[Rfam]
RNA sequence: GGUCAUUUUUCUUUAGUUCCUUGCUUCCUCUGGACGACCGGGCCACUCGUGGAAGCUAAUAAUCCGUAAGGAGCAACCAAAUG
Numbered sequence: 001g002g003u004c005a006u007u008u009u010u011c012u013u014u015a016g017u018u019c020c021u022u023g024c025u026u027c028c029u030c031u032g033g034a035c036g037a038c039c040g041g042g043c044c045a046c047u048c049g050u051g052g053a054a055g056c057u058a059a060u061a062a063u064c065c066g067u068a069a070g071g072a073g074c075a076a077c078c079a080a081a082u083g
Stems, first nucleotide, its partner, number of pairs: 016074007023056006031045003
RNA: RpsF leader